Shown here is a 62-nucleotide RNA from Pseudomonas sp. 21C1, a member of the family "Repression of heat shock gene expression (ROSE) element". The base pairs follow the family's consensus structure. On this family, see Krajewski et al., PLoS One 2013: "Short ROSE-Like RNA Thermometers Control IbpA Synthesis in Pseudomonas Species".

RNA sequence: UGUGGGAUGCCGAAGUCGGGUCCCCUAAUCACUCGCUGAGAAACCAGGAGAACAUCAUGAGC
Numbered sequence: 001u002g003u004g005g006g007a008u009g010c011c012g013a014a015g016u017c018g019g020g021u022c023c024c025c026u027a028a029u030c031a032c033u034c035g036c037u038g039a040g041a042a043a044c045c046a047g048g049a050g051a052a053c054a055u056c057a058u059g060a061g062c
Stems, first nucleotide, its partner, number of pairs: 001027002004024005010019003032050003036047003
It scores 48 bits against the family's covariance model. By type it is an RNA thermoregulator. The source organism's lineage runs through Bacteria, Gammaproteobacteria, Pseudomonadales, Pseudomonadaceae and Pseudomonas.